[Rfam]
RNA sequence: AAUAAGAGAAUGACAAAUCAUAUUUUUCCUCCUGAUUUUCAACUUUUUUCUCAUAAAAAAAUUUAAAUCCAACUAUAACUGCUAAAAAUCAAGAGAAAAAAUCUGAUUUAUCAUUCUUUUAUU
Numbered sequence: 001a002a003u004a005a006g007a008g009a010a011u012g013a014c015a016a017a018u019c020a021u022a023u024u025u026u027u028c029c030u031c032c033u034g035a036u037u038u039u040c041a042a043c044u045u046u047u048u049u050c051u052c053a054u055a056a057a058a059a060a061a062u063u064u065a066a067a068u069c070c071a072a073c074u075a076u077a078a079c080u081g082c083u084a085a086a087a088a089u090c091a092a093g094a095g096a097a098a099a100a101a102u103c104u105g106a107u108u109u110a111u112c113a114u115u116c117u118u119u120u121a122u123u
Base pairs, nucleotide, nucleotide: 001123002122003121004120005119006118007117008116009115010114011113012112013111015109016108017107018106019105020104022102023101024100025099026098027097029095030094031093033091034090035089036088037087038086039085041083046078047077
The record is a 123-nucleotide RNA from Gossypium raimondii, which matches "MIR7504 microRNA precursor family" in Rfam.
The family has 8 seed sequences and 7,343 matches in Rfam 15.1.
The family's consensus secondary structure was predicted with RNAalifold.
Gene Ontology terms of the family: miRNA-mediated post-transcriptional gene silencing and RISC complex.